RNA sequence: UUAACGAGUGAUAUUGACAGUCACGUGUCACGUUCUUAUUGGAUGAUGACUGCUUUUUUCAGUGACCAAUCAAAACAUGACACGUGAUAAUCAUCGUCU
Numbered sequence: 001u002u003a004a005c006g007a008g009u010g011a012u013a014u015u016g017a018c019a020g021u022c023a024c025g026u027g028u029c030a031c032g033u034u035c036u037u038a039u040u041g042g043a044u045g046a047u048g049a050c051u052g053c054u055u056u057u058u059u060c061a062g063u064g065a066c067c068a069a070u071c072a073a074a075a076c077a078u079g080a081c082a083c084g085u086g087a088u089a090a091u092c093a094u095c096g097u098c099u
Stems, first nucleotide, its partner, number of pairs: 020088004025083002029079002033075002036072001038070003